[Rfam]
RNA sequence: GGAUCGUGUUUAAUGAGCACCAUCCUCAUGAGUUAGUGCCAUCGUCUUUUCGGCGAUGAAUACUAGUAGCACCAAACUCCUCUGAUGACCAGUAUGUCUAAAAACUAUCGUUUGGGCUGGGUGCGAUGCCCCUUGGUCCACC
Numbered sequence: 001g002g003a004u005c006g007u008g009u010u011u012a013a014u015g016a017g018c019a020c021c022a023u024c025c026u027c028a029u030g031a032g033u034u035a036g037u038g039c040c041a042u043c044g045u046c047u048u049u050u051c052g053g054c055g056a057u058g059a060a061u062a063c064u065a066g067u068a069g070c071a072c073c074a075a076a077c078u079c080c081u082c083u084g085a086u087g088a089c090c091a092g093u094a095u096g097u098c099u100a101a102a103a104a105c106u107a108u109c110g111u112u113u114g115g116g117c118u119g120g121g122u123g124c125g126a127u128g129c130c131c132c133u134u135g136g137u138c139c140a141c142c
Stems, first nucleotide, its partner, number of pairs: 001025004006020005030079003033075002036072004040058007087098003113140006119131004